[Rfam]
RNA sequence: GCCCUUCACAUUCCGGGAAAAGGCUCUAUAUGGGCAGUUGUCGGUUUCGGCCGACUAUGACGAUAAAGUGUACCGUGCAAUAGGCACAGCGGACCCGGGGGCGGUACCCGGCGGCUCCACCAUCACCCGUCCUGCAGCUUCUUGCGAAGGUCAGGGCAACCCUGUUGUCGCAGGGGUGUUGACGGGGCCGAACUAGGAUCGACGUGUGUUGAAAAGCGGUGUUUUCGUCCGGGCUGAGUAACCCGUUAAAGGCUCAAAACUCAUAAGUGCCAACGACAACGAAGCACUCGCUCUCGCCGCGUAAUUCUAGGGGCUAACGCCCUGAAGUUACAAAGCUAAAGCGCGGUUGGACCCACCGGGCAACAGAAGCGGAUUCC
Numbered sequence: 001g002c003c004c005u006u007c008a009c010a011u012u013c014c015g016g017g018a019a020a021a022g023g024c025u026c027u028a029u030a031u032g033g034g035c036a037g038u039u040g041u042c043g044g045u046u047u048c049g050g051c052c053g054a055c056u057a058u059g060a061c062g063a064u065a066a067a068g069u070g071u072a073c074c075g076u077g078c079a080a081u082a083g084g085c086a087c088a089g090c091g092g093a094c095c096c097g098g099g100g101g102c103g104g105u106a107c108c109c110g111g112c113g114g115c116u117c118c119a120c121c122a123u124c125a126c127c128c129g130u131c132c133u134g135c136a137g138c139u140u141c142u143u144g145c146g147a148a149g150g151u152c153a154g155g156g157c158a159a160c161c162c163u164g165u166u167g168u169c170g171c172a173g174g175g176g177u178g179u180u181g182a183c184g185g186g187g188c189c190g191a192a193c194u195a196g197g198a199u200c201g202a203c204g205u206g207u208g209u210u211g212a213a214a215a216g217c218g219g220u221g222u223u224u225u226c227g228u229c230c231g232g233g234c235u236g237a238g239u240a241a242c243c244c245g246u247u248a249a250a251g252g253c254u255c256a257a258a259a260c261u262c263a264u265a266a267g268u269g270c271c272a273a274c275g276a277c278a279a280c281g282a283a284g285c286a287c288u289c290g291c292u293c294u295c296g297c298c299g300c301g302u303a304a305u306u307c308u309a310g311g312g313g314c315u316a317a318c319g320c321c322c323u324g325a326a327g328u329u330a331c332a333a334a335g336c337u338a339a340a341g342c343g344c345g346g347u348u349g350g351a352c353c354c355a356c357c358g359g360g361c362a363a364c365a366g367a368a369g370c371g372g373a374u375u376c377c
Stems, first nucleotide, its partner, number of pairs: 040055005059229005070222007085208003089205003095111005112190007230245004235256003344358004349375002352372002
Alphaproteobacteria transfer-messenger RNA: a 377-nucleotide RNA sequence from Novosphingobium sp. BW1. The family's RNA type in Rfam is non-coding RNA gene. The base pairs follow the family's consensus structure, which is taken from published work. A search with the family's covariance model found it, with a score of 235 bits. Its Rfam clan is "tRNA clan".